The record is a 106-nucleotide sequence from Flavobacterium silvisoli, which matches "SAM riboswitch aptamer (S box leader)" in Rfam. Rfam 15.1 lists 9,625 matches to the family in 4,158 species. The family's consensus secondary structure is taken from published work.

[Rfam]
RNA sequence: UCGUUAUCACGAAAGCCGGAGGGAAUAGACCCUAUGAAAGCUUAGCAACCCUACACCCGUAGAAGGUGCUACAUUCUAUCUCGUCAAUGACGGGAAAAGAUAACCA
Numbered sequence: 001u002c003g004u005u006a007u008c009a010c011g012a013a014a015g016c017c018g019g020a021g022g023g024a025a026u027a028g029a030c031c032c033u034a035u036g037a038a039a040g041c042u043u044a045g046c047a048a049c050c051c052u053a054c055a056c057c058c059g060u061a062g063a064a065g066g067u068g069c070u071a072c073a074u075u076c077u078a079u080c081u082c083g084u085c086a087a088u089g090a091c092g093g094g095a096a097a098a099g100a101u102a103a104c105c106a
Stems, first nucleotide, its partner, number of pairs: 001106001003104006013043004021032003026078004044070004049066002051062004074098001079095006